A member of the RNA family "Alphaproteobacterial ar15" from Neorhizobium lilium, 110 nucleotides long.
The literature on the family includes a 2010 paper in BMC Microbiol by Torres-Quesada et al., "The Sinorhizobium meliloti RNA chaperone Hfq influences central carbon metabolism and the symbiotic interaction with alfalfa".
The match comes from Rfam's covariance-model search (106 bits).
Rfam classes the family as a small RNA.
Taxonomically the source falls in Neorhizobium (Bacteria, Pseudomonadati, Hyphomicrobiales, Rhizobiaceae).
The base pairs follow the family's consensus structure.
The family is grouped with related families in Rfam's "suhB sRNA clan".
Its family is annotated with protein binding in the Gene Ontology.

RNA sequence: AGUUGAUGCAUUUGGCGGGUUUCCUCCCAGUUCCCGCCGUAUCAGCUGUUCCCCUCUGGAGGUAUUACCUCCACACUUCAUGGGCCACGGUUUUCCGUCGGCCCAUUUUU
Numbered sequence: 001a002g003u004u005g006a007u008g009c010a011u012u013u014g015g016c017g018g019g020u021u022u023c024c025u026c027c028c029a030g031u032u033c034c035c036g037c038c039g040u041a042u043c044a045g046c047u048g049u050u051c052c053c054c055u056c057u058g059g060a061g062g063u064a065u066u067a068c069c070u071c072c073a074c075a076c077u078u079c080a081u082g083g084g085c086c087a088c089g090g091u092u093u094u095c096c097g098u099c100g101g102c103c104c105a106u107u108u109u110u
Stems, first nucleotide, its partner, number of pairs: 001047005007041003015037004057073007081105006087098004
Dot-bracket structure: (((((.(((.....((((...............)))).))).))))).........(((((((...))))))).......((((((((((....)))).)))))).....